The record is a 68-nucleotide RNA from Catagonus wagneri, which matches "Selenocysteine insertion sequence 1" in Rfam. It scores 44 bits against the family's covariance model. NCBI's taxonomy places the organism under Eukaryota, Bilateria, Deuterostomia, Euteleostomi, Catagonus. The family's RNA type in Rfam is cis-regulatory element. From the family's description: The incorporation of selenocysteine into a protein sequence is directed by an in-frame UGA codon (usually a stop codon) within the coding region of the mRNA. Selenoprotein mRNAs contain a conserved secondary structure in the 3' UTR that is required for the distinction of UGA stop from UGA selenocysteine. The selenocysteine insertion sequence (SECIS) is around 60 nt in length and adopts a hairpin structure which is sufficiently well-defined and conserved to act as a computational screen for selenoprotein genes. The family has 61 seed sequences and 3,793 matches in Rfam 15.1. The family's consensus secondary structure is taken from published work.
[Rfam]
RNA sequence: GACGCUUUAUGACAGGAAGGACUGAAAUGUCUCAUGGACGCCUGGUCCUUCCCUGAUGUUGUCACGGC
Numbered sequence: 001g002a003c004g005c006u007u008u009a010u011g012a013c014a015g016g017a018a019g020g021a022c023u024g025a026a027a028u029g030u031c032u033c034a035u036g037g038a039c040g041c042c043u044g045g046u047c048c049u050u051c052c053c054u055g056a057u058g059u060u061g062u063c064a065c066g067g068c
Base pairs, nucleotide, nucleotide: 001068003066004065015052016051017050018049019048020047021046022045023044029039030038031037